[Rfam]
Shown here is a 101-nucleotide RNA sequence from Helianthus annuus, a member of the family "Small nucleolar RNA R64/Z200 family". The literature on the family includes a 2002 paper in Curr Biol by Marker et al., "Experimental RNomics: identification of 140 candidates for small non-messenger RNAs in the plant Arabidopsis thaliana". Rfam links the family to the GO terms RNA processing and nucleolus. NCBI's taxonomy places the organism under Eukaryota, Euphyllophyta, Gunneridae, Asteraceae, Helianthus. Rfam classes the family as a C/D-box small nucleolar RNA. The match comes from Rfam's covariance-model search (67 bits).

RNA sequence: CACUUGCCUUGAUGAAUUAUGAAUCUAAUCACAUGUCAGACUUCAGAGGCUCUUUAAAGUAAAGAGUCAAUGAGAUUACACUUCAUAUAUCUGAGCAAAUA
Dot-bracket structure: .(.((((........................................((((((((.....))))))))..........................)))).).